[Rfam]
RNA sequence: GCAUGAGCAGGCAUCUUUCCAGCCUACAUGUGGAUCCAGGAAUCUGCAGGCUGGUUAGAUGGUUGUCAAGCAU
Numbered sequence: 001g002c003a004u005g006a007g008c009a010g011g012c013a014u015c016u017u018u019c020c021a022g023c024c025u026a027c028a029u030g031u032g033g034a035u036c037c038a039g040g041a042a043u044c045u046g047c048a049g050g051c052u053g054g055u056u057a058g059a060u061g062g063u064u065g066u067c068a069a070g071c072a073u
Stems, first nucleotide, its partner, number of pairs: 007066004012061005019054007030047006

mir-456 microRNA precursor family: a 73-nucleotide RNA sequence from Scleropages formosus.
The source organism's lineage runs through Eukaryota, Deuterostomia, Craniata, Teleostomi and Scleropages.
The literature on the family includes a 2006 paper in FEBS Lett by Xu et al., "Identification of microRNAs from different tissues of chicken embryo and adult chicken".